Alphaproteobacterial sRNA ar9: a 149-nucleotide RNA from Gellertiella hungarica. The base pairs follow the family's consensus structure. The literature on the family includes a 2012 paper in RNA Biol by del Val et al., "A survey of sRNA families in alpha-proteobacteria". A search with the family's covariance model found it, with a score of 124 bits. Lineage of the source: Bacteria > Pseudomonadati > Pseudomonadota > Alphaproteobacteria > Gellertiella.

RNA sequence: ACAAAACAGGCAAGGGAGUUCAAUCCCUGCCUAUCUCGCGGUCAAGUCUUGGGAGGAUUGGAUCUUAGGCGCGUUUAUCGCAGCCCCGGAAACGGUGAAAAGGUCACGCGAAACUUCGCAACAAGGCGCUCCGCGCCUUGUUUUUUUUU
Numbered sequence: 001a002c003a004a005a006a007c008a009g010g011c012a013a014g015g016g017a018g019u020u021c022a023a024u025c026c027c028u029g030c031c032u033a034u035c036u037c038g039c040g041g042u043c044a045a046g047u048c049u050u051g052g053g054a055g056g057a058u059u060g061g062a063u064c065u066u067a068g069g070c071g072c073g074u075u076u077a078u079c080g081c082a083g084c085c086c087c088g089g090a091a092a093c094g095g096u097g098a099a100a101a102g103g104u105c106a107c108g109c110g111a112a113a114c115u116u117c118g119c120a121a122c123a124a125g126g127c128g129c130u131c132c133g134c135g136c137c138u139u140g141u142u143u144u145u146u147u148u149u
Stems, first nucleotide, its partner, number of pairs: 003149004011029002014026003037110004046058004061105005068085003071081003086095003120142008